A member of the RNA family "Group II catalytic intron D1-D4-3" from Achromatium sp. WMS2, 178 nucleotides long. Taxonomically the source falls in Achromatium (Bacteria, Pseudomonadota, Thiotrichales, Thiotrichaceae). About the family: Group II introns are found in rRNA, tRNA and mRNA of organelles in fungi, plants and protists, and also in mRNA in bacteria.

[Rfam]
RNA sequence: GAAACCGCGAGGUGAAACUGAAAGAAGGGGGAGGGGGGAGGCAAAGACACGACCGUACGAACAGAAAUAGGCAGAGAGGCAGGGUGUGGGCGAUGAGCGUGCUAGGGAACGCGAAAUCCAACUGUCACCGAAAGACACAUCAAGUAGAGCCUGACGGCACGGGUCGAAAGUACAUGUU
Number, nucleotide and partner (000 for none) at each position: 001g000002a000003a000004a013005c012006c011007g000008c000009g000010a000011g006012g005013u004014g000015a000016a000017a000018c000019u000020g000021a000022a000023a000024g000025a000026a000027g000028g000029g000030g000031g000032a000033g000034g000035g000036g000037g000038g000039a000040g000041g171042c170043a000044a000045a000046g165047a164048c163049a000050c161051g160052a000053c157054c156055g155056u154057a000058c000059g000060a000061a000062c000063a000064g000065a000066a000067a000068u153069a152070g151071g150072c149073a000074g000075a000076g000077a000078g000079g145080c144081a000082g000083g141084g140085u139086g138087u137088g136089g000090g000091c000092g118093a117094u116095g000096a000097g112098c111099g110100u109101g000102c000103u000104a000105g000106g000107g000108a000109a100110c099111g098112c097113g000114a000115a000116a094117u093118c092119c000120a000121a000122c000123u000124g000125u000126c000127a000128c000129c000130g000131a000132a000133a000134g000135a000136c088137a087138c086139a085140u084141c083142a000143a000144g080145u079146a000147g000148a000149g072150c071151c070152u069153g068154a056155c055156g054157g053158c000159a000160c051161g050162g000163g048164u047165c046166g000167a000168a000169a000170g042171u041172a000173c000174a000175u000176g000177u000178u000